This 58-nucleotide RNA from Clostridium estertheticum belongs to the Rfam family "Na+ riboswitch aptamer (DUF1646)". On this family, see White et al., Nat Chem Biol 2022: "Na(+) riboswitches regulate genes for diverse physiological processes in bacteria". The match comes from Rfam's covariance-model search (53 bits).
[Rfam]
RNA sequence: GGUUGGACAAACUAGUCUAAGUUUGAUUCCAAGAAAUUUGUUUCUGGGGUGGGAAACU
Numbered sequence: 001g002g003u004u005g006g007a008c009a010a011a012c013u014a015g016u017c018u019a020a021g022u023u024u025g026a027u028u029c030c031a032a033g034a035a036a037u038u039u040g041u042u043u044c045u046g047g048g049g050u051g052g053g054a055a056a057c058u
Stems, first nucleotide, its partner, number of pairs: 003032003006027001008025006040057006
Dot-bracket structure: ..((((.((((((......)))))).)..))).......((((((......)))))).